[Rfam]
RNA sequence: UUUCAUGGCGGGAACUCUAGCUGUGACUGCGUUUGUUCCGUUUUAGUUCGCAUCACAGUCUGAGUUCUUGCUGGGAAA
Number, nucleotide and partner (000 for none) at each position: 001u000002u000003u000004c075005a000006u073007g000008g000009c070010g069011g068012g067013a066014a065015c064016u063017c062018u000019a000020g000021c058022u057023g056024u055025g054026a053027c000028u000029g051030c050031g049032u000033u000034u000035g000036u000037u000038c000039c000040g000041u000042u000043u000044u000045a000046g000047u000048u000049c031050g030051c029052a000053u026054c025055a024056c023057a022058g021059u000060c000061u000062g017063a016064g015065u014066u013067c012068u011069u010070g009071c000072u000073g006074g000075g004076a000077a000078a000

mir-11 microRNA precursor family: a 78-nucleotide RNA sequence from Pseudolycoriella hygida. NCBI's taxonomy places the organism under Eukaryota, Eumetazoa, Pancrustacea, Eumetabola, Pseudolycoriella. Its Rfam clan is "mir-6 clan". It scores 60 bits against the family's covariance model.